Rfam assigns this 73-nucleotide RNA from Takifugu rubripes to the family "mir-148/mir-152 microRNA precursor family".

[Rfam]
RNA sequence: UCCAAAUAAAGUUCUGUGAUACACUUAGACUCUAGUUCCUCGCAGUCAGUGCAUUACAGAACUUUGUUUUGGG
Numbered sequence: 001u002c003c004a005a006a007u008a009a010a011g012u013u014c015u016g017u018g019a020u021a022c023a024c025u026u027a028g029a030c031u032c033u034a035g036u037u038c039c040u041c042g043c044a045g046u047c048a049g050u051g052c053a054u055u056a057c058a059g060a061a062c063u064u065u066g067u068u069u070u071g072g073g
Base pairs, nucleotide, nucleotide: 004069005068006067007066008065009064010063011062012061013060014059015058016057022051023050024049025048028047029046030045031044
Source information:
Rfam's curators put it in the seed alignment. Rfam links the family to the GO terms RISC complex and miRNA-mediated post-transcriptional gene silencing. The family has 70 seed sequences and 1,272 matches in Rfam 15.1. For this family Rfam cites "Identification of many microRNAs that copurify with polyribosomes in mammalian neurons" (Kim et al., Proc Natl Acad Sci U S A, 2004).